RNA sequence: CCAGCUUGUAGCCCGGAGAAUCGGCUCCGGGGCAUCCACGAUCCGACCGCAAUCGGAUGAGACCAGGCGAA
Numbered sequence: 001c002c003a004g005c006u007u008g009u010a011g012c013c014c015g016g017a018g019a020a021u022c023g024g025c026u027c028c029g030g031g032g033c034a035u036c037c038a039c040g041a042u043c044c045g046a047c048c049g050c051a052a053u054c055g056g057a058u059g060a061g062a063c064c065a066g067g068c069g070a071a
Stems, first nucleotide, its partner, number of pairs: 004068005012031007041058006
RNA: 2dG-II purine riboswitch aptamer